A member of the RNA family "Makes More Granules Regulator RNA (mmgR)" from Propylenella binzhouense, 77 nucleotides long. Rfam classes the family as a small RNA. The base pairs follow the family's consensus structure.

[Rfam]
RNA sequence: UGCGCGUGCCCUCAUUGGGCGUUUCCUCCCUAGACUUGGGCCGCCGGGCAACCGCGCGGCCCUUUUUCUUUUCGGCU
Numbered sequence: 001u002g003c004g005c006g007u008g009c010c011c012u013c014a015u016u017g018g019g020c021g022u023u024u025c026c027u028c029c030c031u032a033g034a035c036u037u038g039g040g041c042c043g044c045c046g047g048g049c050a051a052c053c054g055c056g057c058g059g060c061c062c063u064u065u066u067u068c069u070u071u072u073c074g075g076c077u
Base pairs, nucleotide, nucleotide: 008020009019010018011017038062039061040060041059042058043057044056045054046053